[Rfam]
Nucleotides: 046
Stems, first nucleotide, its partner, number of pairs: 001020008033045005
Number, partner (000 for none) and nucleotide at each position: 001020c002019c003018c004017g005016g006015c007014c008013c009000u010000c011000a012000c013008g014007g015006g016005c017004c018003g019002g020001g021000c022000u023000a024000c025000u026000g027000c028000a029000u030000g031000u032000c033045g034044g035043u036042c037041c038000u039000u040000c041037g042036g043035a044034c045033c046000u

This 46-nucleotide RNA sequence from a Pirellulaceae bacterium belongs to the Rfam family "Acido-Lenti-1 RNA". The family's consensus secondary structure is taken from published work. NCBI's taxonomy places the organism under Bacteria, Pseudomonadati, Planctomycetota, Planctomycetia, Pirellulaceae. The family's RNA type in Rfam is small RNA.